A member of the RNA family "U5 spliceosomal RNA" from Badhamia polycephala, 120 nucleotides long. The family's consensus secondary structure is taken from published work. The sequence is in the family's curated seed alignment.

[Rfam]
RNA sequence: ACACGCGGCUUUCUCGGCAGAUCGAAUUAUUCUUUCGCCUUUUACUAAAGAAUACCGUGUCGGGGAUGCAUAUUUGCGUCUUUUGAUCGAAUUUUUUGCGGCCACUCUUUAUGAGUGGCU
Numbered sequence: 001a002c003a004c005g006c007g008g009c010u011u012u013c014u015c016g017g018c019a020g021a022u023c024g025a026a027u028u029a030u031u032c033u034u035u036c037g038c039c040u041u042u043u044a045c046u047a048a049a050g051a052a053u054a055c056c057g058u059g060u061c062g063g064g065g066a067u068g069c070a071u072a073u074u075u076g077c078g079u080c081u082u083u084u085g086a087u088c089g090a091a092u093u094u095u096u097u098g099c100g101g102c103c104a105c106u107c108u109u110u111a112u113g114a115g116u117g118g119c120u
Stems, first nucleotide, its partner, number of pairs: 003079004009068001011066009028054008101119006